[Rfam]
This 61-nucleotide RNA sequence from Pongo abelii belongs to the Rfam family "U7 small nuclear RNA".
Nucleotides: 061
Stems, first nucleotide, its partner, number of pairs: 034058007042049002
Number, partner (000 for none) and nucleotide at each position: 001000c002000a003000g004000u005000g006000u007000a008000a009000c010000a011000g012000c013000u014000c015000u016000u017000c018000u019000g020000u021000a022000a023000u024000u025000u026000g027000u028000c029000u030000a031000g032000c033000a034058g035057g036056u037055u038054u039053u040052c041000u042049g043048g044000u045000u046000c047000u048043u049042c050000a051000u052040g053039a054038g055037a056036a057035c058034c059000c060000c061000u

About the family: Animal histone pre-mRNAs are spliced by a different mechanism than nuclear pre-mRNAs and self-splicing introns. The family's consensus secondary structure was predicted with PFOLD.